Source information:
Shown here is a 106-nucleotide RNA from Paenibacillus sp. FSL R7-0331, a member of the family "Guanidine-I riboswitch aptamer". It scores 91 bits against the family's covariance model. Lineage of the source: Bacteria > Bacillati > Bacilli > Caryophanales > Paenibacillus. The base pairs follow the family's consensus structure.
RNA sequence: AAUUUGGUUUUCUAGGGUUCCGCGGCCGUAAACGGCCGGACUGGUCCGAGGGAAAACGCACGGAUUCCAGUCCGUGUCUACACGGAGGGAUAAAAGCCCGGGAGGU
Numbered sequence: 001a002a003u004u005u006g007g008u009u010u011u012c013u014a015g016g017g018u019u020c021c022g023c024g025g026c027c028g029u030a031a032a033c034g035g036c037c038g039g040a041c042u043g044g045u046c047c048g049a050g051g052g053a054a055a056a057c058g059c060a061c062g063g064a065u066u067c068c069a070g071u072c073c074g075u076g077u078c079u080a081c082a083c084g085g086a087g088g089g090a091u092a093a094a095a096g097c098c099c100g101g102g103a104g105g106u
Base pairs, nucleotide, nucleotide: 007057008056009055010054011053012052015047016046020044021043022041023038024037025036026035027034028033058079059076060075061074062073063072064071081101083104087099088098089097